The record is a 75-nucleotide sequence from Xanthomonas oryzae, which matches "Xanthomonas sRNA sX9" in Rfam. By type it is a small RNA. The base pairs follow the family's consensus structure, which was predicted with RNAalifold. NCBI's taxonomy places the organism under Bacteria, Gammaproteobacteria, Lysobacterales, Xanthomonas oryzae, Xanthomonas oryzae pv. oryzae. A reference for the family is Schmidtke et al. (2011), "Genome-wide transcriptome analysis of the plant pathogen Xanthomonas identifies sRNAs with putative virulence functions", Nucleic Acids Res.
RNA sequence: AUGUACCAAGCGUCCACCACAGGUCCUGCGCGCCGUCCACGCCCACCUGACGACUCAUCGCUACGUUUGGUAGCC
Numbered sequence: 001a002u003g004u005a006c007c008a009a010g011c012g013u014c015c016a017c018c019a020c021a022g023g024u025c026c027u028g029c030g031c032g033c034c035g036u037c038c039a040c041g042c043c044c045a046c047c048u049g050a051c052g053a054c055u056c057a058u059c060g061c062u063a064c065g066u067u068u069g070g071u072a073g074c075c
Stems, first nucleotide, its partner, number of pairs: 002016002005013002020035001022033001025030001047073003051069003